[Rfam]
RNA sequence: CCACCCUGUGAUUAUAAAAAGACGCGUUAUUCUGAGGGACUCCACUGGAUGGCAGUUUUCAUACUUUGUCUGUUCUUUGUUUCUUCCUGUUCUUUCUCUCCCCCUUAUGCUUUUCUUCUGUCCCUCACUCUUAAACUGCCAGCCAGUCCGCUGACUGCGAUUAUGAGAUAUGAGGGUGU
Numbered sequence: 001c002c003a004c005c006c007u008g009u010g011a012u013u014a015u016a017a018a019a020a021g022a023c024g025c026g027u028u029a030u031u032c033u034g035a036g037g038g039a040c041u042c043c044a045c046u047g048g049a050u051g052g053c054a055g056u057u058u059u060c061a062u063a064c065u066u067u068g069u070c071u072g073u074u075c076u077u078u079g080u081u082u083c084u085u086c087c088u089g090u091u092c093u094u095u096c097u098c099u100c101c102c103c104c105u106u107a108u109g110c111u112u113u114u115c116u117u118c119u120g121u122c123c124c125u126c127a128c129u130c131u132u133a134a135a136c137u138g139c140c141a142g143c144c145a146g147u148c149c150g151c152u153g154a155c156u157g158c159g160a161u162u163a164u165g166a167g168a169u170a171u172g173a174g175g176g177u178g179u
Base pairs, nucleotide, nucleotide: 002178003177004176005175006174035084036083037082038081039080

Source information:
The record is a 179-nucleotide RNA sequence from Sinocyclocheilus anshuiensis, which matches "Small nucleolar RNA SNORD97" in Rfam. A search with the family's covariance model found it, with a score of 60 bits. Rfam links the family to the GO terms RNA processing and nucleolus. By type it is a C/D-box small nucleolar RNA.